mir-338 microRNA precursor family: a 61-nucleotide RNA from Ictalurus punctatus. The source organism's lineage runs through Eukaryota, Craniata, Actinopteri, Otophysi and Ictalurus. The sequence is in the family's curated seed alignment.
RNA sequence: AACAAUAUCCUGAUGCUGAAUGAGUGUGUUGAAGGAAACUCCAGCAUCAGUGAUUUUGUUG
Number, nucleotide and partner (000 for none) at each position: 001a060002a059003c058004a057005a056006u000007a054008u053009c052010c050011u049012g048013a047014u046015g045016c044017u043018g042019a000020a000021u000022g000023a000024g000025u000026g000027u000028g000029u000030u000031g000032a000033a000034g000035g000036a000037a000038a000039c000040u000041c000042c018043a017044g016045c015046a014047u013048c012049a011050g010051u000052g009053a008054u007055u000056u005057u004058g003059u002060u001061g000